Record summary:
The family of this 336-nucleotide RNA sequence from Ophiocordyceps unilateralis is "Group I catalytic intron". Group I catalytic introns are large self-splicing ribozymes. They catalyse their own excision from mRNA, tRNA and rRNA precursors in a wide range of organisms. The core secondary structure consists of 9 paired regions (P1-P9). These fold to essentially two domains - the P4-P6 domain (formed from the stacking of P5, P4, P6 and P6a helices) and the P3-P9 domain (formed from the P8, P3, P7 and P9 helices). The secondary structure mark-up for this family represents only this conserved core. Group I catalytic introns often have long ORFs inserted in loop regions. The window size for this search is chosen to minimise search time and catch the small examples. A larger window size will find more matches. Lineage of the source: Eukaryota > Opisthokonta > Ascomycota > Sordariomycetes > Ophiocordyceps. It scores 79 bits against the family's covariance model. A reference for the family is Cech (1990), "Self-splicing of group I introns", Annu Rev Biochem.

RNA sequence: AUUAUAUAAUUAGGAAGCUAGUUAUUGUCAGAAUGAACUUCUGGCAAAAAUAAACCAAAAAAUUGCGGGAAGUCCCUAAAGCAGUUUCAACCAAACAUAUGUGGUAACACAGUAUGUGGCACAGGAAAUGACUCGUGGUAUGGUAAAAUCGAAAUUUAUUAUUUAGCGCCUCCUAAUCCUUUAGGGAUAGGACAGAUAAAUAAGAGGGUAAUCUGCAGCCAAGUGCCAAAAAAAAAUCAUAAUAUGUAUUUUGGUAUGCAGUUCAUCGACUAAAUGUUGGUUGGCUUUUUUGCUAAAGAGCUUAAGAUAUAGUCAAGCCCCGUUCGAAAGAAUGCA
Numbered sequence: 001a002u003u004a005u006a007u008a009a010u011u012a013g014g015a016a017g018c019u020a021g022u023u024a025u026u027g028u029c030a031g032a033a034u035g036a037a038c039u040u041c042u043g044g045c046a047a048a049a050a051u052a053a054a055c056c057a058a059a060a061a062a063u064u065g066c067g068g069g070a071a072g073u074c075c076c077u078a079a080a081g082c083a084g085u086u087u088c089a090a091c092c093a094a095a096c097a098u099a100u101g102u103g104g105u106a107a108c109a110c111a112g113u114a115u116g117u118g119g120c121a122c123a124g125g126a127a128a129u130g131a132c133u134c135g136u137g138g139u140a141u142g143g144u145a146a147a148a149u150c151g152a153a154a155u156u157u158a159u160u161a162u163u164u165a166g167c168g169c170c171u172c173c174u175a176a177u178c179c180u181u182u183a184g185g186g187a188u189a190g191g192a193c194a195g196a197u198a199a200a201u202a203a204g205a206g207g208g209u210a211a212u213c214u215g216c217a218g219c220c221a222a223g224u225g226c227c228a229a230a231a232a233a234a235a236a237u238c239a240u241a242a243u244a245u246g247u248a249u250u251u252u253g254g255u256a257u258g259c260a261g262u263u264c265a266u267c268g269a270c271u272a273a274a275u276g277u278u279g280g281u282u283g284g285c286u287u288u289u290u291u292g293c294u295a296a297a298g299a300g301c302u303u304a305a306g307a308u309a310u311a312g313u314c315a316a317g318c319c320c321c322g323u324u325c326g327a328a329a330g331a332a333u334g335c336a
Stems, first nucleotide, its partner, number of pairs: 002015002005012002023033001025031001053282005060275001064217006074208004218262002223257004231250002266315001268314005284301007321334005
Dot-bracket structure: .((.((....)).)).......(.(.....).)...................(((((..(...((((((....((((...............................................................................................................................))))...))))))((...((((....((................))...))))...))...[.[[[[[..)..))))).(((((((....)))))))........]]]]]].....(((((....)))))..